[Rfam]
RNA sequence: AGGCAGCCUUGCUGUUUGAUAAUAAGGUAGCGAAAAAGUUGUUAAGCUGCUCAUAUAUUGAUUGGCUUUUGCUCUUCAGACUUACUAAGGUUUUUCCUUGAAGCUGGUCUAGUAAGCCCAAGCACAAU
Numbered sequence: 001a002g003g004c005a006g007c008c009u010u011g012c013u014g015u016u017u018g019a020u021a022a023u024a025a026g027g028u029a030g031c032g033a034a035a036a037a038g039u040u041g042u043u044a045a046g047c048u049g050c051u052c053a054u055a056u057a058u059u060g061a062u063u064g065g066c067u068u069u070u071g072c073u074c075u076u077c078a079g080a081c082u083u084a085c086u087a088a089g090g091u092u093u094u095u096c097c098u099u100g101a102a103g104c105u106g107g108u109c110u111a112g113u114a115a116g117c118c119c120a121a122g123c124a125c126a127a128u
Base pairs, nucleotide, nucleotide: 002043003042004041005040008038009036010035013032014031015030016029066122067121068120071117072116073115078110079109080108081107082106085103086102089096090095
RNA: Small nucleolar RNA snoR77